[Rfam]
RNA sequence: UUGAUUGAUUUGAAGACUUCAAUUUUCAAACUUGAUUGAUUUGAGACUUCAUCUUGCAAACUUGAAGAAUUUGAAGACUUCAACU
Numbered sequence: 001u002u003g004a005u006u007g008a009u010u011u012g013a014a015g016a017c018u019u020c021a022a023u024u025u026u027c028a029a030a031c032u033u034g035a036u037u038g039a040u041u042u043g044a045g046a047c048u049u050c051a052u053c054u055u056g057c058a059a060a061c062u063u064g065a066a067g068a069a070u071u072u073g074a075a076g077a078c079u080u081c082a083a084c085u
Base pairs, nucleotide, nucleotide: 001083002082003081004080009075010074011073012072013071014070017067018066019065020064021063025058027056028055033051034050035049